[Rfam]
RNA sequence: UAAACCGGCGAGAACCAUGUGAAUCAAGUAGUAUAGUGAUUCACGCGGUUCUC
Number, nucleotide and partner (000 for none) at each position: 001u000002a000003a000004a000005c000006c000007g000008g000009c000010g053011a052012g051013a050014a049015c048016c047017a000018u045019g044020u043021g042022a041023a040024u039025c038026a037027a000028g000029u000030a000031g000032u000033a000034u000035a000036g000037u026038g025039a024040u023041u022042c021043a020044c019045g018046c000047g016048g015049u014050u013051c012052u011053c010

Rfam assigns this 53-nucleotide RNA from Praxelis clematidea to the family "Plastid-ccsA-ndhD-1 3UTR RNA". By type it is a cis-regulatory element. Plastid-ccsA-ndhD-1 is a non-coding RNA (ncRNA) recognised in plastids. The source organism's lineage runs through Eukaryota, Streptophyta, Euphyllophyta, Asterales and Praxelis. The family has 488 seed sequences and 1,322 matches in Rfam 15.1. Pairs were carried over by alignment from the consensus structure, which was predicted with LocARNA. It is one of the family's seed sequences.